[Rfam]
RNA sequence: CGGCUGUAGCCAUAUGAAUCAGUUCUUAUCAUAGGGAAGAAAACUGGCCGGUGGUUGUCCAUCCAUCAAUAUUGCCACCGCUUACCGAUCUUCCUACAUAU
Dot-bracket structure: .................................(((((((.....(((.((((((((.........)))).....)))))))......)))))))......